Rfam assigns this 142-nucleotide sequence from Mesorhizobium zhangyense to the family "Alphaproteobacterial sRNA ar7". Lineage of the source: Bacteria > Pseudomonadati > Pseudomonadota > Alphaproteobacteria > Mesorhizobium. The literature on the family includes a 2012 paper in RNA Biol by del Val et al., "A survey of sRNA families in alpha-proteobacteria". By type it is a small RNA.
RNA sequence: CAUCGGCUUUAUAGCCGAGUCCGGAUUAAGGCCCGUCCCCCGCCUAGACCGGACCAAGCGGCAGCCUAAUCCCCCUCUCCGGGCUGCCGCCCCCUUUUGAAGUACCGCCGCCGUGGUCCCCCUCCAGCCACGGCGGCAUUUU
Numbered sequence: 001c002a003u004c005g006g007c008u009u010u011a012u013a014g015c016c017g018a019g020u021c022c023g024g025a026u027u028a029a030g031g032c033c034c035g036u037c038c039c040c041c042g043c044c045u046a047g048a049c050c051g052g053a054c055c056a057a058g059c060g061g062c063a064g065c066c067u068a069a070u071c072c073c074c075c076u077c078u079c080c081g082g083g084c085u086g087c088c089g090c091c092c093c094c095u096u097u098u099g100a101a102g103u104a105c106c107g108c109c110g111c112c113g114u115g116g117u118c119c120c121c122c123u124c125c126a127g128c129c130a131c132g133g134c135g136g137c138a139u140u141u142u
Base pairs, nucleotide, nucleotide: 020053021052022051023050024049026047030044031043032042058090059089060088061087062086063085064084065083066082108136109135110134111133112132113131114130115129116128117127